[Rfam]
RNA sequence: CGCUCCCACGCCAACAAAUUCCAGUUAACCUCAUGGUUAACUGUUCCGAUGGCUUGGGAAAUUGAUCGAUUACACGAUCCUUUCUCGGAUGUUUCUGUUCGAGAAGGUUUGCACAGUGAUCCACAU
Numbered sequence: 001c002g003c004u005c006c007c008a009c010g011c012c013a014a015c016a017a018a019u020u021c022c023a024g025u026u027a028a029c030c031u032c033a034u035g036g037u038u039a040a041c042u043g044u045u046c047c048g049a050u051g052g053c054u055u056g057g058g059a060a061a062u063u064g065a066u067c068g069a070u071u072a073c074a075c076g077a078u079c080c081u082u083u084c085u086c087g088g089a090u091g092u093u094u095c096u097g098u099u100c101g102a103g104a105a106g107g108u109u110u111g112c113a114c115a116g117u118g119a120u121c122c123a124c125a126u
Base pairs, nucleotide, nucleotide: 005058006057007056008055010053011052012051022043023042024041025040026039027038028037029036030035068122069120070119071118072117073116076112077110080107081106082105083104086101087100088099089098090097